[Rfam]
Rfam assigns this 50-nucleotide RNA from Enterococcus hirae to the family "Na+ riboswitch aptamer (DUF1646)". Lineage of the source: Bacteria > Lactobacillales > Enterococcaceae > Enterococcus > Enterococcus hirae.
RNA sequence: GGUUGGGCAUAAUGCUUCAAGGAUCGCGUUCUUCAAGGGGUGAGAAGAAC
Numbered sequence: 001g002g003u004u005g006g007g008c009a010u011a012a013u014g015c016u017u018c019a020a021g022g023a024u025c026g027c028g029u030u031c032u033u034c035a036a037g038g039g040g041u042g043a044g045a046a047g048a049a050c
Stems, first nucleotide, its partner, number of pairs: 003020003006016003028050007